[Rfam]
RNA sequence: CCAACGUGGACAUCCUGUGAGAUGCCUCUCAUUUGGCUCUGUCUGUGUGGCAUAAGGGAGCGUAGCACUUUAGUGCCAUAACGUACAGUCCCGUUCCACAACGUUGGAAAGCAAGCCUAUCCCGGCCCCUGGCUGGUGUUGACAGCGUCCUGUAUAUUCCUAAACCUUUCCAGAGCCCUUUGGGCCGUUACUGGGGAGGAAAACCAUACAGUGCACACUA
Numbered sequence: 001c002c003a004a005c006g007u008g009g010a011c012a013u014c015c016u017g018u019g020a021g022a023u024g025c026c027u028c029u030c031a032u033u034u035g036g037c038u039c040u041g042u043c044u045g046u047g048u049g050g051c052a053u054a055a056g057g058g059a060g061c062g063u064a065g066c067a068c069u070u071u072a073g074u075g076c077c078a079u080a081a082c083g084u085a086c087a088g089u090c091c092c093g094u095u096c097c098a099c100a101a102c103g104u105u106g107g108a109a110a111g112c113a114a115g116c117c118u119a120u121c122c123c124g125g126c127c128c129c130u131g132g133c134u135g136g137u138g139u140u141g142a143c144a145g146c147g148u149c150c151u152g153u154a155u156a157u158u159c160c161u162a163a164a165c166c167u168u169u170c171c172a173g174a175g176c177c178c179u180u181u182g183g184g185c186c187g188u189u190a191c192u193g194g195g196g197a198g199g200a201a202a203a204c205c206a207u208a209c210a211g212u213g214c215a216c217a218c219u220a
Base pairs, nucleotide, nucleotide: 001107002106003105004104005103006102007101008044009043010042011041012040014036015035019028020027021026047099048098049097050096056092057091058090059089060086062084063083065079150211151210152209153208154207155206166198167197168196169195170194171193175185176184177183178182
The family of this 220-nucleotide RNA sequence from Triplophysa tibetana is "Small nucleolar RNA SNORA73 family". By type it is an H/ACA-box small nucleolar RNA. It scores 184 bits against the family's covariance model. Its family is annotated with nucleolus and RNA processing in the Gene Ontology. The source organism's lineage runs through Eukaryota, Neopterygii, Clupeocephala, Otomorpha and Triplophysa. The family is grouped with related families in Rfam's "snR30-U17 clan". The literature on the family includes a 1996 paper in RNA by Enright et al., "5'ETS rRNA processing facilitated by four small RNAs: U14, E3, U17, and U3".